The record is a 135-nucleotide sequence from Aquila chrysaetos, which matches "Small nucleolar RNA SNORA72" in Rfam. A search with the family's covariance model found it, with a score of 113 bits. Rfam 15.1 lists 1,541 matches to the family in 547 species. By type it is an H/ACA-box small nucleolar RNA. For this family Rfam cites "The family of box ACA small nucleolar RNAs is defined by an evolutionarily conserved secondary structure and ubiquitous sequence elements essential for RNA accumulation" (Ganot et al., Genes Dev, 1997). About the family: U72 is a member of the H/ACA class of snoRNAs. The snoRNA gene is located in intron 4 of the ribosomal L30 protein gene in human, mouse and chicken. Taxonomically the source falls in Aquila chrysaetos (Eukaryota, Aves, Accipitrinae, Aquila).
Nucleotides: 135
Base pairs, nucleotide, nucleotide: 003057004056005055016044017043019041020040021039022038023037024036025035067128068127069126070125072124073123084112085111086110087109089107090106091105092104093103
Number, partner (000 for none) and nucleotide at each position: 001000a002000u003057g004056c005055g006000a007000a008000u009000a010000u011000u012000c013000u014000c015000g016044c017043u018000g019041u020040c021039c022038u023037g024036a025035u026000a027000u028000u029000u030000u031000c032000g033000u034000g035025a036024u037023c038022a039021g040020g041019g042000g043017a044016g045000g046000c047000u048000a049000g050000a051000c052000a053000u054000u055005c056004g057003c058000u059000a060000u061000a062000u063000u064000a065000a066000a067128g068127c069126u070125a071000u072124g073123c074000a075000u076000u077000g078000u079000g080000u081000c082000c083000u084112c085111c086110a087109g088000g089107g090106c091105u092104a093103g094000a095000u096000u097000a098000u099000u100000g101000c102000u103093c104092u105091a106090g107089u108000a109087c110086u111085g112084g113000c114000u115000u116000u117000g118000u119000a120000c121000a122000u123073g124072c125070u126069a127068g128067u129000g130000a131000c132000a133000u134000u135000g